[Rfam]
RNA sequence: GGGCAGUGAUGAAGAUUAUAGUCAUGCACCACUCUGAGAAUUUUCUCAGUGAUGAUACUGUACUAUUACCCAUCUAUCUGAGCCU
Dot-bracket structure: ((((.............................................................................))))
This 85-nucleotide sequence from Dendrobium nobile belongs to the Rfam family "Small nucleolar RNA Z221/R21b". The family's RNA type in Rfam is C/D-box small nucleolar RNA. A search with the family's covariance model found it, with a score of 59 bits. The literature on the family includes a 2003 paper in Nucleic Acids Res by Chen et al., "The high diversity of snoRNAs in plants: identification and comparative study of 120 snoRNA genes from Oryza sativa". Lineage of the source: Eukaryota > Magnoliopsida > Petrosaviidae > Epidendroideae > Dendrobium. Rfam links the family to the GO terms nucleolus and RNA processing.